[Rfam]
RNA sequence: UCAUGUUAAAUCGGGGCUUUAGCGGUGCCUUGUAACCCUCAAUCCGCUGUAGAGGGGAUGAAAACUUGCCAUGAGGGAUAUCUUUGUUUGGUCUGCCUCGCAUAAGUGGUGUUGACGGUUUGGUCUUACGCAAUUGGAACCUGUGAACCUCGUCAGGGCGGGAACGCAGCAGCGAUAAGCAGUCAUUCUGAUGUGCCGUAAGGGUGCCAAACUUGAGCUAACUGUGGGAGUAACGCUUGUAAAGCUAUUUCGAAUGCAAGCACAUGG
Number, nucleotide and partner (000 for none) at each position: 001u267002c266003a265004u264005g263006u262007u000008a000009a000010a059011u058012c057013g031014g030015g029016g028017c027018u000019u025020u024021a000022g000023c000024g020025g019026u000027g017028c016029c015030u014031u013032g000033u000034a000035a000036c056037c055038c054039u053040c052041a000042a000043u000044c000045c000046g000047c000048u000049g000050u000051a000052g040053a039054g038055g037056g036057g012058a011059u010060g000061a000062a000063a000064a000065c260066u259067u258068g257069c256070c000071a255072u254073g000074a000075g251076g250077g249078a248079u247080a000081u000082c244083u243084u242085u241086g240087u239088u000089u000090g236091g000092u000093c000094u232095g231096c000097c000098u229099c228100g000101c226102a225103u224104a000105a000106g222107u221108g219109g218110u217111g000112u000113u000114g000115a000116c000117g213118g212119u211120u210121u209122g208123g207124u206125c202126u201127u200128a199129c198130g197131c193132a192133a000134u191135u190136g189137g188138a187139a000140c000141c182142u181143g180144u179145g000146a000147a000148c000149c000150u175151c174152g173153u172154c000155a000156g000157g000158g167159c166160g165161g000162g000163a000164a000165c160166g159167c158168a000169g000170c000171a000172g153173c152174g151175a150176u000177a000178a000179g144180c143181a142182g141183u000184c000185a000186u000187u138188c137189u136190g135191a134192u132193g131194u000195g000196c000197c130198g129199u128200a127201a126202g125203g000204g000205u000206g124207c123208c122209a121210a120211a119212c118213u117214u000215g000216a000217g110218c109219u108220a000221a107222c106223u000224g103225u102226g101227g000228g099229a098230g000231u095232a094233a000234c000235g000236c090237u000238u000239g087240u086241a085242a084243a083244g082245c000246u000247a079248u078249u077250u076251c075252g000253a000254a072255u071256g069257c068258a067259a066260g065261c000262a006263c005264a004265u003266g002267g001
Shown here is a 267-nucleotide sequence from Monoglobus pectinilyticus, a member of the family "Bacterial large signal recognition particle RNA". NCBI's taxonomy places the organism under Bacteria, Clostridia, Monoglobales, Monoglobaceae, Monoglobus. Gene Ontology terms of the family: signal recognition particle, plasma membrane targeting and SRP-dependent cotranslational protein targeting to membrane, signal sequence recognition. For this family Rfam cites "SRPDB: Signal Recognition Particle Database" (Rosenblad et al., Nucleic Acids Res, 2003). The match comes from Rfam's covariance-model search (174 bits). The base pairs follow the family's consensus structure, which is taken from published work. The family's RNA type in Rfam is non-coding RNA gene.